A member of the RNA family "MIR5565 microRNA precursor family" from Miscanthus lutarioriparius, 106 nucleotides long. A search with the family's covariance model found it, with a score of 84 bits.
RNA sequence: GUAUGUAUUCAUCUCAAUCCAUAUGUGUUGAAGUGGAUUGGGGUGAAAUUGAACUAAGUUCCAUUCCAUUCCACUCCAACACAUGUGGAUCGAAGUGGAUACACGU
Numbered sequence: 001g002u003a004u005g006u007a008u009u010c011a012u013c014u015c016a017a018u019c020c021a022u023a024u025g026u027g028u029u030g031a032a033g034u035g036g037a038u039u040g041g042g043g044u045g046a047a048a049u050u051g052a053a054c055u056a057a058g059u060u061c062c063a064u065u066c067c068a069u070u071c072c073a074c075u076c077c078a079a080c081a082c083a084u085g086u087g088g089a090u091c092g093a094a095g096u097g098g099a100u101a102c103a104c105g106u
Stems, first nucleotide, its partner, number of pairs: 004103009014093002017090014033074005039068003043064003